Shown here is a 200-nucleotide sequence from Streptomyces sp. A1136, a member of the family "Actinobacteria sRNA Ms_IGR-5".

RNA sequence: GUGGUUCCCGAAAUGUACGGAAACCGGACGCGUGAGGUGGCUGCGGGCUAAAGCGCCCGUCGUCGCACGCACCCAGUGCGGUGCCCGGCGGGAACGCCAGGCGCCAAUCCCAAGCAGUCACCCGACCCGCGGGCUCGCCGGUACGUCCGGCCGGCUCCUCUCACUGCAGGAGAGGAUCCCGAGCCCGCGGGUCGUCUGCG
Numbered sequence: 001g002u003g004g005u006u007c008c009c010g011a012a013a014u015g016u017a018c019g020g021a022a023a024c025c026g027g028a029c030g031c032g033u034g035a036g037g038u039g040g041c042u043g044c045g046g047g048c049u050a051a052a053g054c055g056c057c058c059g060u061c062g063u064c065g066c067a068c069g070c071a072c073c074c075a076g077u078g079c080g081g082u083g084c085c086c087g088g089c090g091g092g093a094a095c096g097c098c099a100g101g102c103g104c105c106a107a108u109c110c111c112a113a114g115c116a117g118u119c120a121c122c123c124g125a126c127c128c129g130c131g132g133g134c135u136c137g138c139c140g141g142u143a144c145g146u147c148c149g150g151c152c153g154g155c156u157c158c159u160c161u162c163a164c165u166g167c168a169g170g171a172g173a174g175g176a177u178c179c180c181g182a183g184c185c186c187g188c189g190g191g192u193c194g195u196c197u198g199c200g
Stems, first nucleotide, its partner, number of pairs: 001044005046105003053102002058096003123194013137155006
Dot-bracket structure: (((((..................................))))).(((....((...(((.................................)))....))))).................(((((((((((((.((((((.......))))))..........................)))))))))))))......
Record summary
By type it is a small RNA. It scores 62 bits against the family's covariance model. NCBI's taxonomy places the organism under Bacteria, Actinomycetota, Kitasatosporales, Streptomycetaceae, Streptomyces.